[Rfam]
RNA: Small nucleolar RNA R44/J54/Z268 family
Organism: Anisodus acutangulus
RNA sequence: UGUGCAAGUGAUGAUAAAACAGACAGGGACAUCAGAAUCCACAGGAUUAUGAUGAUUUGUCGAUGAGAAUCUCUCUGAUGCACC
Number, nucleotide and partner (000 for none) at each position: 001u000002g083003u082004g081005c080006a079007a000008g000009u000010g000011a000012u000013g000014a000015u000016a000017a000018a000019a000020c000021a000022g000023a000024c000025a000026g000027g000028g000029a000030c000031a000032u000033c000034a000035g000036a000037a000038u000039c000040c000041a000042c000043a000044g000045g000046a000047u000048u000049a000050u000051g000052a000053u000054g000055a000056u000057u000058u000059g000060u000061c000062g000063a000064u000065g000066a000067g000068a000069a000070u000071c000072u000073c000074u000075c000076u000077g000078a000079u006080g005081c004082a003083c002084c000